[Rfam]
c-di-AMP riboswitch aptamer (ydaO/yuaA leader): a 158-nucleotide sequence from Thermoleophilum album. The organism belongs to Thermoleophilum, within Bacteria.
RNA sequence: UUGCCGCCAACGCCGAAUCCACGCACCGCGUGGAGCGGGGGACCCACUUGGUGGCAGUGCCACCGGGGGCGAACCUCUCCGUCUCACGGCGGCGAGGAGCGCGAUCUCUUCCCGCGCGAGCCCGUCAGCUAACCCCGCAGGCGUUGGAAAGAGAUCGU
Numbered sequence: 001u002u003g004c005c006g007c008c009a010a011c012g013c014c015g016a017a018u019c020c021a022c023g024c025a026c027c028g029c030g031u032g033g034a035g036c037g038g039g040g041g042a043c044c045c046a047c048u049u050g051g052u053g054g055c056a057g058u059g060c061c062a063c064c065g066g067g068g069g070c071g072a073a074c075c076u077c078u079c080c081g082u083c084u085c086a087c088g089g090c091g092g093c094g095a096g097g098a099g100c101g102c103g104a105u106c107u108c109u110u111c112c113c114g115c116g117c118g119a120g121c122c123c124g125u126c127a128g129c130u131a132a133c134c135c136c137g138c139a140g141g142c143g144u145u146g147g148a149a150a151g152a153g154a155u156c157g158u
Stems, first nucleotide, its partner, number of pairs: 011143004018034005035138006045066001067123003075096003099117004